The family of this 150-nucleotide sequence from Zizania palustris is "Small nucleolar RNA snoR145". A search with the family's covariance model found it, with a score of 60 bits. Taxonomically the source falls in Zizania (Eukaryota, Viridiplantae, Streptophyta, Tracheophyta). A reference for the family is Chen and Wu (2009), "Mining small RNA sequencing data: a new approach to identify small nucleolar RNAs in Arabidopsis", Nucleic Acids Res.
RNA sequence: UUGCGAAGAUCCCAGCAGAGAGGUGUGUUGCACUCCAUGGUUGAGGCCUCUCUAACCAUCAUAAUCUUCGCAUAGGAACAGAGGCCGUGAAUUCGUGGAUGUGUGAUCGGUUUAUGGUUCCAUUACAUCUGUAGCCACGGAUACAUCUAU
Numbered sequence: 001u002u003g004c005g006a007a008g009a010u011c012c013c014a015g016c017a018g019a020g021a022g023g024u025g026u027g028u029u030g031c032a033c034u035c036c037a038u039g040g041u042u043g044a045g046g047c048c049u050c051u052c053u054a055a056c057c058a059u060c061a062u063a064a065u066c067u068u069c070g071c072a073u074a075g076g077a078a079c080a081g082a083g084g085c086c087g088u089g090a091a092u093u094c095g096u097g098g099a100u101g102u103g104u105g106a107u108c109g110g111u112u113u114a115u116g117g118u119u120c121c122a123u124u125a126c127a128u129c130u131g132u133a134g135c136c137a138c139g140g141a142u143a144c145a146u147c148u149a150u
Stems, first nucleotide, its partner, number of pairs: 003071007011020001013018001025052001027050001033045003037041001085140005098129002101126002103123002
Annotation: The family's RNA type in Rfam is H/ACA-box small nucleolar RNA.